[Rfam]
RNA: Acido-Lenti-1 RNA
RNA sequence: CCACGGGUUCGCACCCGUGGCUAUUUAUGUUUCGUCCCUCCGGGACU
Numbered sequence: 001c002c003a004c005g006g007g008u009u010c011g012c013a014c015c016c017g018u019g020g021c022u023a024u025u026u027a028u029g030u031u032u033c034g035u036c037c038c039u040c041c042g043g044g045a046c047u
Stems, first nucleotide, its partner, number of pairs: 001020008034046005
Dot-bracket structure: ((((((((....)))))))).............(((((...))))).